RNA sequence: CUACACCACUCCCUUACUCGGAUCGUCCGGCACGUUCCUGCCGGUGAAGGAGAAGAUCA
Numbered sequence: 001c002u003a004c005a006c007c008a009c010u011c012c013c014u015u016a017c018u019c020g021g022a023u024c025g026u027c028c029g030g031c032a033c034g035u036u037c038c039u040g041c042c043g044g045u046g047a048a049g050g051a052g053a054a055g056a057u058c059a
Stems, first nucleotide, its partner, number of pairs: 010051003014047003027044006

This 59-nucleotide RNA from Streptomyces sp. ISL-1 belongs to the Rfam family "msiK RNA". The source organism's lineage runs through Bacteria, Bacillati, Actinomycetota, Streptomycetaceae and Streptomyces. By type it is a cis-regulatory element.